Annotation: Rfam assigns this 74-nucleotide sequence from Alligator sinensis to the family "Mammalian CPEB3 ribozyme". About the family: The mammalian CPEB3 ribozyme is a self cleaving RNA located in the second intron of the CPEB3 gene which belongs to a family of genes regulating messenger RNA polyadenylation.

[Rfam]
RNA sequence: UCAUAAAUUCAAGGCCAUAGCAGAAGCACUCACACCGUGGCCUGUCAGAUUCCAAUGAAUCUGCAAAUUCUGCU
Number, nucleotide and partner (000 for none) at each position: 001u000002c000003a000004u000005a000006a000007a000008u000009u000010c000011a000012a000013g042014g041015c040016c039017a000018u000019a074020g073021c072022a071023g070024a069025a068026g038027c037028a000029c000030u000031c000032a000033c000034a000035c000036c000037g027038u026039g016040g015041c014042c013043u000044g000045u000046c063047a062048g061049a060050u059051u058052c057053c000054a000055a000056u000057g052058a051059a050060u049061c048062u047063g046064c000065a000066a000067a000068u025069u024070c023071u022072g021073c020074u019
The organism belongs to Alligator, within Eukaryota. It scores 57 bits against the family's covariance model. The family's consensus secondary structure is taken from published work.